[Rfam]
RNA: mir-23 microRNA precursor family
RNA sequence: GGGUUCCUGGCACCGUGAUUUGGUGGAUAAACAGAAAUGAAAAUCACAUUGCCAGGGAUUUCC
Numbered sequence: 001g002g003g004u005u006c007c008u009g010g011c012a013c014c015g016u017g018a019u020u021u022g023g024u025g026g027a028u029a030a031a032c033a034g035a036a037a038u039g040a041a042a043a044u045c046a047c048a049u050u051g052c053c054a055g056g057g058a059u060u061u062c063c
Base pairs, nucleotide, nucleotide: 001063002062003059004058005057006056007055008054009053010052011051012050015047016046017045018044019043020042021041